[Rfam]
RNA sequence: CCCACCGUCAUUGGGGAGUAGCCGCCUUCCAUUGCGAGAAGGGUUUGCGUCAACAGACUUGUCCUACACCAUGUGGGAUAUGGCGUAAGCAGCGUGCAGCCUGGCGAGACCUUUGACCGCGCAACUUCGGGUUUGGCCGAGGAGUGGCGCGGUCAAUUGCGUCUUCGGCCGAGG
Numbered sequence: 001c002c003c004a005c006c007g008u009c010a011u012u013g014g015g016g017a018g019u020a021g022c023c024g025c026c027u028u029c030c031a032u033u034g035c036g037a038g039a040a041g042g043g044u045u046u047g048c049g050u051c052a053a054c055a056g057a058c059u060u061g062u063c064c065u066a067c068a069c070c071a072u073g074u075g076g077g078a079u080a081u082g083g084c085g086u087a088a089g090c091a092g093c094g095u096g097c098a099g100c101c102u103g104g105c106g107a108g109a110c111c112u113u114u115g116a117c118c119g120c121g122c123a124a125c126u127u128c129g130g131g132u133u134u135g136g137c138c139g140a141g142g143a144g145u146g147g148c149g150c151g152g153u154c155a156a157u158u159g160c161g162u163c164u165u166c167g168g169c170c171g172a173g174g
Stems, first nucleotide, its partner, number of pairs: 026041001028040001043090010060080009097174001